[Rfam]
RNA sequence: AUGAAUCUUCAGGGCAGGGUGAAAUUCCCGACCGGUGGUACAGUCCACGAGCCGAGAGGUUGAACUGGUGUAAUUCCAGUACCGACAGUAAAGUCUGGAUGGAAGAAGUGUUUG
Numbered sequence: 001a002u003g004a005a006u007c008u009u010c011a012g013g014g015c016a017g018g019g020u021g022a023a024a025u026u027c028c029c030g031a032c033c034g035g036u037g038g039u040a041c042a043g044u045c046c047a048c049g050a051g052c053c054g055a056g057a058g059g060u061u062g063a064a065c066u067g068g069u070g071u072a073a074u075u076c077c078a079g080u081a082c083c084g085a086c087a088g089u090a091a092a093g094u095c096u097g098g099a100u101g102g103a104a105g106a107a108g109u110g111u112u113u114g
Stems, first nucleotide, its partner, number of pairs: 003112002007108004017029003031094002033084002035048004043082002051060003064080005086097003

The family of this 114-nucleotide sequence from Dethiosulfatibacter aminovorans is "FMN riboswitch aptamer (RFN element)".
Pairs were carried over by alignment from the consensus structure, which is taken from published work.